[Rfam]
RNA sequence: GAGGGGGAAGGCGGGAGAAGAGAAGAGAGUGGUUUAUGGGCUCCUCACUCCUCCCCUCCCGUCUUGUUCUCUC
Number, nucleotide and partner (000 for none) at each position: 001g000002a000003g000004g069005g068006g067007g000008a065009a064010g063011g062012c061013g060014g059015g058016a057017g056018a000019a000020g000021a000022g053023a000024a052025g051026a000027g049028a000029g048030u047031g046032g000033u000034u000035u000036a000037u000038g000039g000040g000041c000042u000043c000044c000045u000046c031047a030048c029049u027050c000051c025052u024053c022054c000055c000056c017057u016058c015059c014060c013061g012062u011063c010064u009065u008066g000067u006068u005069c004070u000071c000072u000073c000